A member of the RNA family "FMN riboswitch aptamer (RFN element)" from Acetatifactor muris, 153 nucleotides long. For this family Rfam cites "Coenzyme recognition and gene regulation by a flavin mononucleotide riboswitch" (Serganov et al., Nature, 2009). The match comes from Rfam's covariance-model search (104 bits).
RNA sequence: AAAAUUCUUCGGGGUCGGGUGCAAUUCCCUACUGGCGGUAUAGUCCGCGACCCGGGGCAGAAAGGGUAUCUGAUUUGCAGUUUGCCUGUCUGUCACGGCUGACUCGGUGAAACUCCGGGACCAACAGUAAAGUCUGGAUGAAAGAAGAAAGAU
Numbered sequence: 001a002a003a004a005u006u007c008u009u010c011g012g013g014g015u016c017g018g019g020u021g022c023a024a025u026u027c028c029c030u031a032c033u034g035g036c037g038g039u040a041u042a043g044u045c046c047g048c049g050a051c052c053c054g055g056g057g058c059a060g061a062a063a064g065g066g067u068a069u070c071u072g073a074u075u076u077g078c079a080g081u082u083u084g085c086c087u088g089u090c091u092g093u094c095a096c097g098g099c100u101g102a103c104u105c106g107g108u109g110a111a112a113c114u115c116c117g118g119g120a121c122c123a124a125c126a127g128u129a130a131a132g133u134c135u136g137g138a139u140g141a142a143a144g145a146a147g148a149a150a151g152a153u
Stems, first nucleotide, its partner, number of pairs: 005149006017029003031133002033123002035048004043121002052098002103119005125136003